A member of the RNA family "Small nucleolar RNA SNORA51" from Cavia porcellus, 132 nucleotides long. A search with the family's covariance model found it, with a score of 128 bits. Rfam 15.1 lists 2,121 matches to the family in 210 species. From the family's description: ACA51 is a member of the H/ACA class of snoRNA that guide the sites of modification of uridines to pseudouridines. It is annotated as an H/ACA-box small nucleolar RNA.
Nucleotides: 132
Stems, first nucleotide, its partner, number of pairs: 003058006020043003026037004073123005086110003092104004
Number, partner (000 for none) and nucleotide at each position: 001000u002000g003058c004057c005056u006055u007054c008053u009000g010000g011000u012000g013000c014000u015000u016000u017000c018000c019000a020043c021042a022041g023000g024000c025000a026037g027036u028035g029034u030000u031000c032000u033000u034029a035028c036027a037026c038000u039000g040000a041022c042021u043020g044000u045000a046000u047000a048000g049000a050000a051000a052000a053008a054007g055006g056005a057004g058003g059000a060000a061000g062000a063000g064000u065000a066000a067000a068000c069000c070000u071000g072000c073123c074122c075121c076120a077119u078000g079000u080000a081000u082000a083000c084000c085000u086110c087109a088108g089000c090000a091000c092104a093103g094102g095101c096000c097000u098000u099000g100000u101095g102094c103093c104092u105000u106000g107000u108088c109087u110086g111000u112000a113000u114000u115000g116000u117000g118000a119077a120076u121075g122074g123073g124000a125000a126000a127000a128000c129000a130000u131000a132000a